[Rfam]
Nucleotides: 110
Base pairs, nucleotide, nucleotide: 006080007079008078009077010076015033017032018031019030020029021028034062035061036060039058040057041056043053044052047104048103082093083092084091085090
Number, partner (000 for none) and nucleotide at each position: 001000a002000a003000g004000g005000a006080a007079c008078a009077u010076u011000a012000a013000g014000a015033g016000a017032g018031g019030u020029c021028c022000a023000a024000u025000a026000a027000u028021g029020g030019a031018c032017c033015c034062g035061g036060c037000a038000a039058c040057c041056u042000a043053g044052g045000a046000c047104g048103g049000a050000c051000a052044c053043c054000c055000a056041a057040g058039g059000u060036g061035c062034u063000u064000c065000c066000c067000a068000g069000a070000a071000a072000u073000g074000g075000g076010g077009a078008u079007g080006u081000g082093g083092u084091a085090c086000g087000a088000a089000a090085g091084u092083a093082c094000a095000a096000g097000u098000a099000a100000u101000u102000g103048u104047c105000c106000a107000c108000a109000c110000g
A member of the RNA family "SAM-I/IV (S-adenosyl methionine) riboswitch aptamer", 110 nucleotides long. The family is grouped with related families in Rfam's "SAM clan".